[Rfam]
RNA: Small nucleolar RNA SNORD16
Organism: Oreotrochilus melanogaster
RNA sequence: UGCCGUGAUGUCGUAAUUUGCGUCCGACUCUGUGCCCGGUGACAGUUGCCUGCUGUCGGUGUGCUGGGGCAGAGGGCUGACGAGCACUAAACACUGAGCA
Number, nucleotide and partner (000 for none) at each position: 001u100002g099003c098004c000005g000006u000007g000008a000009u000010g000011u000012c000013g000014u000015a000016a000017u000018u000019u000020g000021c082022g081023u080024c079025c000026g000027a000028c000029u000030c072031u071032g070033u069034g000035c000036c000037c000038g000039g064040u063041g057042a056043c055044a054045g053046u000047u000048g000049c000050c000051u000052g000053c045054u044055g043056u042057c041058g000059g000060u000061g000062u000063g040064c039065u000066g000067g000068g000069g033070c032071a031072g030073a000074g000075g000076g000077c000078u000079g024080a023081c022082g021083a000084g000085c000086a000087c000088u000089a000090a000091a000092c000093a000094c000095u000096g000097a000098g003099c002100a001